A member of the RNA family "Plastid-psbN 5UTR RNA" from Ziziphus jujuba, 61 nucleotides long. The match comes from Rfam's covariance-model search (65 bits). Pairs were carried over by alignment from the consensus structure, which was predicted with LocARNA. Rfam's curators write: Plastid psbN is a non-coding RNA (ncRNA) recognised in plastids. By type it is a cis-regulatory element. Taxonomically the source falls in Ziziphus jujuba (Eukaryota, Streptophytina, Rhamnaceae, Paliureae).
RNA sequence: UAAGAUACCCAUCAAAAGAGUAGUUCGCCACCUAAGAGCUACUUUACUGUAUUCUGAAUUC
Number, nucleotide and partner (000 for none) at each position: 001u000002a000003a000004g000005a000006u000007a000008c000009c000010c000011a000012u000013c000014a000015a000016a000017a045018g044019a043020g042021u041022a040023g039024u038025u037026c036027g000028c000029c000030a000031c000032c000033u000034a000035a000036g026037a025038g024039c023040u022041a021042c020043u019044u018045u017046a000047c000048u000049g000050u000051a000052u000053u000054c000055u000056g000057a000058a000059u000060u000061c000